[Rfam]
RNA: c-di-AMP riboswitch aptamer (ydaO/yuaA leader)
Organism: Allocatelliglobosispora scoriae
RNA sequence: CGGCGCUACCGCCGAAUCAUUCAGCCGAGCUCCUUCGGCUGGCUGAACCGGGGACCCAUGUUCCCUGGGGUGAAUUCGCGUCGACCCGGCGCGAUAGCGCGAUCUUCCCGCGCGAACCCGUCAGCUAACCCGGUAGGCGGUGGAGCGACGCAGG
Numbered sequence: 001c002g003g004c005g006c007u008a009c010c011g012c013c014g015a016a017u018c019a020u021u022c023a024g025c026c027g028a029g030c031u032c033c034u035u036c037g038g039c040u041g042g043c044u045g046a047a048c049c050g051g052g053g054a055c056c057c058a059u060g061u062u063c064c065c066u067g068g069g070g071u072g073a074a075u076u077c078g079c080g081u082c083g084a085c086c087c088g089g090c091g092c093g094a095u096a097g098c099g100c101g102a103u104c105u106u107c108c109c110g111c112g113c114g115a116a117c118c119c120g121u122c123a124g125c126u127a128a129c130c131c132g133g134u135a136g137g138c139g140g141u142g143g144a145g146c147g148a149c150g151c152a153g154g
Stems, first nucleotide, its partner, number of pairs: 010139004017046003047134006057067002068119003076094004097113004